[Rfam]
RNA: mir-144 microRNA precursor family
RNA sequence: GCUCUGGAGAGGAUAUCAUCAUAUACUGUAAGUUUGUUAUAGUGACACUACAGUAUAGAUGAUGUACUAUCCAGGGCCA
Numbered sequence: 001g002c003u004c005u006g007g008a009g010a011g012g013a014u015a016u017c018a019u020c021a022u023a024u025a026c027u028g029u030a031a032g033u034u035u036g037u038u039a040u041a042g043u044g045a046c047a048c049u050a051c052a053g054u055a056u057a058g059a060u061g062a063u064g065u066a067c068u069a070u071c072c073a074g075g076g077c078c079a
Stems, first nucleotide, its partner, number of pairs: 007071002010068002013065008022057009032046003